[Rfam]
Nucleotides: 066
Stems, first nucleotide, its partner, number of pairs: 005060009014049005020043002024041002
Number, partner (000 for none) and nucleotide at each position: 001000u002000a003000a004000c005060u006059c007058a008057u009056u010055a011054a012053a013052g014049a015048g016047c017046u018045g019000g020043g021042a022000u023000a024041u025040g026000c027000u028000g029000a030000c031000u032000u033000u034000c035000u036000g037000a038000c039000a040025u041024a042021u043020c044000a045018c046017a047016g048015c049014u050000a051000g052013c053012u054011u055010u056009g057008a058007u059006g060005a061000g062000c063000u064000a065000c066000a

The family of this 66-nucleotide RNA sequence from Octopus sinensis is "mir-2 microRNA precursor family". For this family Rfam cites "microRNAs: tiny regulators with great potential" (Ambros, Cell, 2001). The match comes from Rfam's covariance-model search (46 bits). Rfam links the family to the GO terms RISC complex and miRNA-mediated post-transcriptional gene silencing.